[Rfam]
RNA sequence: GCGUCGACGACGGUCGGCGCGAUGAAGUGCACGUGCGUGUCGAUGCCGCCGGCGGUGACGAUCUUGCCGUUGCCGGCGAUGAUCUCCGUCUCGGGGCCGAUGACGAGGUCGGGGUGGACGCCGUCCAUCGUCUCCGGGUUGCCGGCCUUGCCGAUGCCGGUGACGCGGCCGUCGCGGAUGCCGACGUCCGCCUUGACGACGCCCCAGUGGUCGAGGAUCACGACACCGGUGAUCACGGUGUCGGGGGCGCCGUCGGCGCGCGUGGCGCGGGACUGACCCAUGGACUCGCGC
Numbered sequence: 001g002c003g004u005c006g007a008c009g010a011c012g013g014u015c016g017g018c019g020c021g022a023u024g025a026a027g028u029g030c031a032c033g034u035g036c037g038u039g040u041c042g043a044u045g046c047c048g049c050c051g052g053c054g055g056u057g058a059c060g061a062u063c064u065u066g067c068c069g070u071u072g073c074c075g076g077c078g079a080u081g082a083u084c085u086c087c088g089u090c091u092c093g094g095g096g097c098c099g100a101u102g103a104c105g106a107g108g109u110c111g112g113g114g115u116g117g118a119c120g121c122c123g124u125c126c127a128u129c130g131u132c133u134c135c136g137g138g139u140u141g142c143c144g145g146c147c148u149u150g151c152c153g154a155u156g157c158c159g160g161u162g163a164c165g166c167g168g169c170c171g172u173c174g175c176g177g178a179u180g181c182c183g184a185c186g187u188c189c190g191c192c193u194u195g196a197c198g199a200c201g202c203c204c205c206a207g208u209g210g211u212c213g214a215g216g217a218u219c220a221c222g223a224c225a226c227c228g229g230u231g232a233u234c235a236c237g238g239u240g241u242c243g244g245g246g247g248c249g250c251c252g253u254c255g256g257c258g259c260g261c262g263u264g265g266c267g268c269g270g271g272a273c274u275g276a277c278c279c280a281u282g283g284a285c286u287c288g289c290g291c
Stems, first nucleotide, its partner, number of pairs: 001291003005288003013161005019073004028051002032048002035046004055067003075152002079148001081146001083144001088142002090138005095132003102129002107125003111121001168277001170275002175271001179267004190224001192222001194220002204213001227262002229259001235253001238250003
A member of the RNA family "5' ureB small RNA" from Streptomyces tagetis, 291 nucleotides long. A search with the family's covariance model found it, with a score of 60 bits. The base pairs follow the family's consensus structure, which was predicted with mfold. On this family, see Wen et al., J Bacteriol 2013: "Helicobacter pylori 5'ureB-sRNA, a cis-encoded antisense small RNA, negatively regulates ureAB expression by transcription termination". Gene Ontology term of the family: negative regulation of gene expression.